A member of the RNA family "BsrG" from Bacillus sp. HNG, 254 nucleotides long. Pairs were carried over by alignment from the consensus structure, which was predicted with WAR. Lineage of the source: Bacteria > Bacilli > Caryophanales > Bacillaceae > Bacillus. By type it is a small RNA. From the family's description: bsrE, bsrG and bsrH pair through intermolecular interactions with antisense sRNAs.

RNA sequence: GCAAUAGAUUGUCCAUAAGGGUGGUCGGCUAAGCUCCCAAGUGAAAGGGGGUGAUGCCUAUAUGACGAUUUAUGAGAGCCUUGUGAUUAUGCUUUCGUUUGCGUCUCUUGUUGUUGCGAUUUUAUCUUUUGACAACAAUAAAAAAUAGACCUCCCUUAUUCCGCUAAAAAUCGGGUGAGGUCUAUUUCAUCUUAGGCUGAUCCUCUUAGUGGGACCAUUCUAUUGCUAGACCGUAGAUGCUGCCAACAUCUGCG
Numbered sequence: 001g002c003a004a005u006a007g008a009u010u011g012u013c014c015a016u017a018a019g020g021g022u023g024g025u026c027g028g029c030u031a032a033g034c035u036c037c038c039a040a041g042u043g044a045a046a047g048g049g050g051g052u053g054a055u056g057c058c059u060a061u062a063u064g065a066c067g068a069u070u071u072a073u074g075a076g077a078g079c080c081u082u083g084u085g086a087u088u089a090u091g092c093u094u095u096c097g098u099u100u101g102c103g104u105c106u107c108u109u110g111u112u113g114u115u116g117c118g119a120u121u122u123u124a125u126c127u128u129u130u131g132a133c134a135a136c137a138a139u140a141a142a143a144a145a146u147a148g149a150c151c152u153c154c155c156u157u158a159u160u161c162c163g164c165u166a167a168a169a170a171u172c173g174g175g176u177g178a179g180g181u182c183u184a185u186u187u188c189a190u191c192u193u194a195g196g197c198u199g200a201u202c203c204u205c206u207u208a209g210u211g212g213g214a215c216c217a218u219u220c221u222a223u224u225g226c227u228a229g230a231c232c233g234u235a236g237a238u239g240c241u242g243c244c245a246a247c248a249u250c251u252g253c254g
Stems, first nucleotide, its partner, number of pairs: 001226005007220002009217001011215001012200002015159007023150001025148001030054001032052001034051005064126002067123002077093003102118003170187001201214004232254008241245001